Description:
The record is a 356-nucleotide RNA from Acholeplasma laidlawii, which matches "Bacterial RNase P class B" in Rfam. The organism belongs to Acholeplasma laidlawii, within Bacteria. Rfam describes the family as follows. Ribonuclease P (RNase P) is a ubiquitous endoribonuclease, found in archaea, bacteria and eukarya as well as chloroplasts and mitochondria.

RNA sequence: UUAGGAAGGUGACUGAGCGAAUCUUUAUGAUUCGUUAGGAAAGUCCAUGCUAGCACACACCUUAUGGGUGUGUAGUGUUUGUGCUAAGGGAAACCAUAACCUUAGGUAUGUUUAAUAAACAUAACGGCAAACUAGUUAUAGCUAAAGUGUUUCACUACGUUAUAACUUAAAUUAAAGUGCCACAGAGACGAAUCUAUUUAGAAAUAAAUAGGGUGAAACGCGGUAAACCCCUCAAGCUAGCAACCCAAAUUAGGUAGGGGCACAUGAUGUGUAGUAAUACAACAUCGUGCAAGAUUUAUGUCUUGAGAUUAAUAGUCACAAAAGAAGAAAUUCUUUACAGAACAUGGCUUAUGCAC
Numbered sequence: 001u002u003a004g005g006a007a008g009g010u011g012a013c014u015g016a017g018c019g020a021a022u023c024u025u026u027a028u029g030a031u032u033c034g035u036u037a038g039g040a041a042a043g044u045c046c047a048u049g050c051u052a053g054c055a056c057a058c059a060c061c062u063u064a065u066g067g068g069u070g071u072g073u074a075g076u077g078u079u080u081g082u083g084c085u086a087a088g089g090g091a092a093a094c095c096a097u098a099a100c101c102u103u104a105g106g107u108a109u110g111u112u113u114a115a116u117a118a119a120c121a122u123a124a125c126g127g128c129a130a131a132c133u134a135g136u137u138a139u140a141g142c143u144a145a146a147g148u149g150u151u152u153c154a155c156u157a158c159g160u161u162a163u164a165a166c167u168u169a170a171a172u173u174a175a176a177g178u179g180c181c182a183c184a185g186a187g188a189c190g191a192a193u194c195u196a197u198u199u200a201g202a203a204a205u206a207a208a209u210a211g212g213g214u215g216a217a218a219c220g221c222g223g224u225a226a227a228c229c230c231c232u233c234a235a236g237c238u239a240g241c242a243a244c245c246c247a248a249a250u251u252a253g254g255u256a257g258g259g260g261c262a263c264a265u266g267a268u269g270u271g272u273a274g275u276a277a278u279a280c281a282a283c284a285u286c287g288u289g290c291a292a293g294a295u296u297u298a299u300g301u302c303u304u305g306a307g308a309u310u311a312a313u314a315g316u317c318a319c320a321a322a323a324g325a326a327g328a329a330a331u332u333c334u335u336u337a338c339a340g341a342a343c344a345u346g347g348c349u350u351a352u353g354c355a356c
Base pairs, nucleotide, nucleotide: 004356007352009319010318011317012316013315014314016036017035018034019033020032021031041350042349043348045347046346047345048344049343050240051239052238053237054236055073056072057071058070059069060068079235080234081233083231084105085104086103087102088101089100106125107123108122109121110120111119112118126230127229133169134168139162140161141160142159146156147155148154177228178227179224180223181222193212194211195210196209197208198207199206200205244259245258246257263289264288265287266286267285268284269283290305291304292303293302294301295300322335323334324333325332326331
Rfam links the family to the GO terms ribonuclease P activity, dimeric ribonuclease P complex and tRNA processing. The family's RNA type in Rfam is ribozyme. On this family, see Brown, Nucleic Acids Res 1999: "The Ribonuclease P Database".